This 70-nucleotide RNA from Cyprinus carpio belongs to the Rfam family "Small nucleolar RNA R38". On this family, see Bachellerie et al., Trends Biochem Sci 1995: "Antisense snoRNAs: a family of nucleolar RNAs with long complementarities to rRNA". Gene Ontology terms of the family: RNA processing and nucleolus.
RNA sequence: UCGAGCCUGUGAUGAGAGAAGUUAUCCCUGUCUGAAAAACACGUGUGGAUUUUGGUAUUCUGAGGCUUGA
Numbered sequence: 001u002c003g004a005g006c007c008u009g010u011g012a013u014g015a016g017a018g019a020a021g022u023u024a025u026c027c028c029u030g031u032c033u034g035a036a037a038a039a040c041a042c043g044u045g046u047g048g049a050u051u052u053u054g055g056u057a058u059u060c061u062g063a064g065g066c067u068u069g070a
Stems, first nucleotide, its partner, number of pairs: 001070007
NCBI's taxonomy places the organism under Eukaryota, Actinopterygii, Otomorpha, Otophysi, Cyprinus carpio. Rfam's curators write: snoR38 is a C/D box small nucleolar RNA conserved across yeast, human, Arabidopsis and rice. It is encoded in the intron of elongation factor-1 gamma in both pombe and cerevisiae. snoR38 guides the methylation of 2'-O-ribose sites in 28S rRNA. It is annotated as a C/D-box small nucleolar RNA.